The record is a 105-nucleotide RNA sequence from Prunus persica, which matches "MIR6274 microRNA precursor family" in Rfam. The organism belongs to Prunus, within Eukaryota.
RNA sequence: GGAUAACACGUUUUGCUAUUUCCGGCUAAUAACACAAUGACAGGUAUGAUAACUUUUCCAUAUGCCAUUGUGUUAUUGGUCGGAGAUAGCAAAACAGUACUAUCC
Numbered sequence: 001g002g003a004u005a006a007c008a009c010g011u012u013u014u015g016c017u018a019u020u021u022c023c024g025g026c027u028a029a030u031a032a033c034a035c036a037a038u039g040a041c042a043g044g045u046a047u048g049a050u051a052a053c054u055u056u057u058c059c060a061u062a063u064g065c066c067a068u069u070g071u072g073u074u075a076u077u078g079g080u081c082g083g084a085g086a087u088a089g090c091a092a093a094a095c096a097g098u099a100c101u102a103u104c105c
Stems, first nucleotide, its partner, number of pairs: 002104004011094009021084019041064002044061002048057002
Annotation
Its family is annotated with miRNA-mediated post-transcriptional gene silencing and RISC complex in the Gene Ontology. The family's consensus secondary structure was predicted with RNAalifold.